[Rfam]
RNA sequence: CCGCAUCCGCGUGACUGGCGACUUGGAUGGAGCACCAUCGGGAAGCGCGGAGGCUUGCCGCCGCAUCGCCUGGGCACCUUUC
Number, nucleotide and partner (000 for none) at each position: 001c000002c000003g054004c053005a000006u051007c050008c049009g048010c047011g046012u045013g000014a000015c042016u041017g070018g069019c068020g067021a066022c000023u000024u000025g000026g000027a038028u037029g036030g035031a000032g000033c000034a000035c030036c029037a028038u027039c000040g000041g016042g015043a000044a000045g012046c011047g010048c009049g008050g007051a006052g000053g004054c003055u000056u000057g000058c000059c000060g075061c074062c073063g000064c000065a000066u021067c020068g019069c018070c017071u000072g000073g062074g061075c060076a000077c000078c000079u000080u000081u000082c000

Source information: Rfam assigns this 82-nucleotide sequence from a Sphingomonadales bacterium to the family "ZMP/ZTP riboswitch aptamer (pfl RNA motif)". NCBI's taxonomy places the organism under Bacteria, Pseudomonadati, Pseudomonadota, Alphaproteobacteria, Sphingomonadales. A reference for the family is Jones and Ferre-D'Amare (2015), "Recognition of the bacterial alarmone ZMP through long-distance association of two RNA subdomains", Nat Struct Mol Biol. It scores 58 bits against the family's covariance model.